[Rfam]
RNA sequence: AUUAAAAACAUGAUUGAGUGUAGCGUUGAUGAAAAAUGAGAAAGGCCAAAAUACAGAAAUUCUCAAAUAUGUCAUCAACGCUGCACUCAAUGAUGUUUCUA
Numbered sequence: 001a002u003u004a005a006a007a008a009c010a011u012g013a014u015u016g017a018g019u020g021u022a023g024c025g026u027u028g029a030u031g032a033a034a035a036a037u038g039a040g041a042a043a044g045g046c047c048a049a050a051a052u053a054c055a056g057a058a059a060u061u062c063u064c065a066a067a068u069a070u071g072u073c074a075u076c077a078a079c080g081c082u083g084c085a086c087u088c089a090a091u092g093a094u095g096u097u098u099c100u101a
Stems, first nucleotide, its partner, number of pairs: 006098006013091016030074003
Source information
The record is a 101-nucleotide sequence from Solanum tuberosum, which matches "MIR397 microRNA precursor family" in Rfam. Its family is annotated with miRNA-mediated post-transcriptional gene silencing and RISC complex in the Gene Ontology.